[Rfam]
RNA sequence: AUGAACCGACCUUUACGACGGAUCGUCCGGCACGUACCUGCCGGUGAAGGGACAUCGCA
Number, nucleotide and partner (000 for none) at each position: 001a000002u000003g000004a000005a000006c000007c000008g000009a000010c050011c049012u048013u047014u046015a045016c000017g000018a000019c000020g000021g000022a000023u000024c000025g000026u000027c044028c043029g042030g041031c040032a039033c000034g000035u000036a000037c000038c000039u032040g031041c030042c029043g028044g027045u015046g014047a013048a012049g011050g010051g000052a000053c000054a000055u000056c000057g000058c000059a000

Description
The record is a 59-nucleotide RNA sequence from a Propionibacteriales bacterium, which matches "msiK RNA" in Rfam. It scores 54 bits against the family's covariance model. Rfam 15.1 lists 1,374 matches to the family in 1,364 species.